[Rfam]
RNA sequence: UGACGGGGGCCCGCACAAGCGGUGGAGCAUGUGGUUUAAUUCGAAGCAACGCGAAGAACCUUACCAGGUCUUGACAUCCAUGGAACCUUUGAGAGAUCAGAGGGUGCCCUUCGGGGAGCCAUGAGACAGGUGCUGCAUGGCUGUCGUCAGCUCGUGUCGUGAGAUGUUGGGUUAAGUCCCGCAACGAGCGCAACCCCUACUUCCAGUUGCCAGCAUUGGGUUGGGCACUCUGGAGGGACUGCCUAUGAAAGUAGGAGGAAGGCGGGGAUGACGUCUAGUCAGCAUGGUCCUUACGACCUGGGCGACACACGUGCUACAAUGGCCGAUACAACGCGCUGCGAACUCGCGAGAGUGAGCGAAUCGCUGAAAGUCGGCCCCAGUUCAGAUCGGAGUCUGCAACUCGACUCCGUGAAGUUGGAAUCGCUAGUAAUCGUGGGUCAGCAUACCGCGGUGAAUACGUUCCCGGGCCUUGUACACACCGCCCGUCACACCAUGGGAGUAAAUUGCAGCUGAAACCGCCGGGAGCCUCACGGCAGGCGUCUAGGCUGUGGUUCAUGACUGGGGUGAAGUCGUAACAAGG
Numbered sequence: 001u002g003a004c005g006g007g008g009g010c011c012c013g014c015a016c017a018a019g020c021g022g023u024g025g026a027g028c029a030u031g032u033g034g035u036u037u038a039a040u041u042c043g044a045a046g047c048a049a050c051g052c053g054a055a056g057a058a059c060c061u062u063a064c065c066a067g068g069u070c071u072u073g074a075c076a077u078c079c080a081u082g083g084a085a086c087c088u089u090u091g092a093g094a095g096a097u098c099a100g101a102g103g104g105u106g107c108c109c110u111u112c113g114g115g116g117a118g119c120c121a122u123g124a125g126a127c128a129g130g131u132g133c134u135g136c137a138u139g140g141c142u143g144u145c146g147u148c149a150g151c152u153c154g155u156g157u158c159g160u161g162a163g164a165u166g167u168u169g170g171g172u173u174a175a176g177u178c179c180c181g182c183a184a185c186g187a188g189c190g191c192a193a194c195c196c197c198u199a200c201u202u203c204c205a206g207u208u209g210c211c212a213g214c215a216u217u218g219g220g221u222u223g224g225g226c227a228c229u230c231u232g233g234a235g236g237g238a239c240u241g242c243c244u245a246u247g248a249a250a251g252u253a254g255g256a257g258g259a260a261g262g263c264g265g266g267g268a269u270g271a272c273g274u275c276u277a278g279u280c281a282g283c284a285u286g287g288u289c290c291u292u293a294c295g296a297c298c299u300g301g302g303c304g305a306c307a308c309a310c311g312u313g314c315u316a317c318a319a320u321g322g323c324c325g326a327u328a329c330a331a332c333g334c335g336c337u338g339c340g341a342a343c344u345c346g347c348g349a350g351a352g353u354g355a356g357c358g359a360a361u362c363g364c365u366g367a368a369a370g371u372c373g374g375c376c377c378c379a380g381u382u383c384a385g386a387u388c389g390g391a392g393u394c395u396g397c398a399a400c401u402c403g404a405c406u407c408c409g410u411g412a413a414g415u416u417g418g419a420a421u422c423g424c425u426a427g428u429a430a431u432c433g434u435g436g437g438u439c440a441g442c443a444u445a446c447c448g449c450g451g452u453g454a455a456u457a458c459g460u461u462c463c464c465g466g467g468c469c470u471u472g473u474a475c476a477c478a479c480c481g482c483c484c485g486u487c488a489c490a491c492c493a494u495g496g497g498a499g500u501a502a503a504u505u506g507c508a509g510c511u512g513a514a515a516c517c518g519c520c521g522g523g524a525g526c527c528u529c530a531c532g533g534c535a536g537g538c539g540u541c542u543a544g545g546c547u548g549u550g551g552u553u554c555a556u557g558a559c560u561g562g563g564g565u566g567a568a569g570u571c572g573u574a575a576c577a578a579g580g
Base pairs, nucleotide, nucleotide: 001476002475003473004472005471007470008469009468010467011466012465013464015460016459019424020423021422022421023420024317026315027314028313029312030311031310032309033308034306035305040055041054042053043052064301065300066299067298068297069296070295077126078125079123080122081121082120083119086103087102088101089100090099091098092097105118107116108115129290130289132288133287134286135285138284139283140279141278142277143275145273146272150189151188152187153186154185155184156165157164158163168181169180170179171178195267196266197265198264200236201235202234203233204232205231206230210225211224214223215222239258240257242255243254244253245252246251321376322375323374324373325372326371327370333364334363335362338357339356343352344351345350383414388409389408390407391406392405393404394403430452431451432450433449434448435447436446479579481576484572485571489566490565491564492563494561495560496559499556500555502553503552504551505550506549507548508547509546510545517539518538519537520536523534526533527532
The family of this 580-nucleotide part of an RNA from Deinococcus koreensis is "Bacterial small subunit ribosomal RNA". The source organism's lineage runs through Bacteria, Thermotogati, Deinococcota, Deinococcales and Deinococcus. The match comes from Rfam's covariance-model search (1506 bits). Clan: SSU clan.